[Rfam]
RNA sequence: AAAUUUUAACAGAAAAUCCGCACGUUUACCGGCACAUAAAACGGGGUGCUUUGGCUUUUAUUGCCAUGGUUCGUUUCUAUGGGUAUUCGGAGGCUUAAC
Numbered sequence: 001a002a003a004u005u006u007u008a009a010c011a012g013a014a015a016a017u018c019c020g021c022a023c024g025u026u027u028a029c030c031g032g033c034a035c036a037u038a039a040a041a042c043g044g045g046g047u048g049c050u051u052u053g054g055c056u057u058u059u060a061u062u063g064c065c066a067u068g069g070u071u072c073g074u075u076u077c078u079a080u081g082g083g084u085a086u087u088c089g090g091a092g093g094c095u096u097a098a099c
Base pairs, nucleotide, nucleotide: 023089024088027085028084029083030082035081036080037079038078040075041074042073043072048070049069050068052066
Rfam assigns this 99-nucleotide RNA sequence from Thiosulfatimonas sediminis to the family "t44 RNA". The family's RNA type in Rfam is small RNA. From the family's description: This family consists of a number of bacterial RNA genes of between 135 and 170 bases in length. For this family Rfam cites "Transcriptome analysis of Escherichia coli using high-density oligonucleotide probe arrays" (Tjaden et al., Nucleic Acids Res, 2002). The organism belongs to Thiosulfatimonas, within Bacteria.